This 108-nucleotide RNA sequence from Schaalia odontolytica belongs to the Rfam family "TPP riboswitch aptamer (THI element)".
[Rfam]
Nucleotides: 108
Stems, first nucleotide, its partner, number of pairs: 007095003011058003016033005040053005064089004070083004
Number, partner (000 for none) and nucleotide at each position: 001000a002000c003000g004000c005000g006000a007095u008094g009093c010000a011058c012057g013056g014000g015000a016033g017032c018031c019030c020029u021000g022000a023000c024000a025000g026000u027000a028000g029020g030019g031018g032017g033016c034000u035000g036000a037000g038000a039000g040053g041052g042051a043050g044049g045000c046000g047000a048000u049044c050043c051042u052041c053040c054000g055000a056013c057012c058011g059000a060000c061000a062000c063000a064089c065088c066087u067086g068000a069000u070083c071082c072081g073080g074000a075000u076000c077000a078000u079000a080073c081072c082071g083070g084000c085000g086067u087066a088065g089064g090000g091000a092000c093009g094008c095007a096000g097000a098000c099000a100000c101000u102000u103000c104000u105000u106000c107000c108000a
It scores 59 bits against the family's covariance model.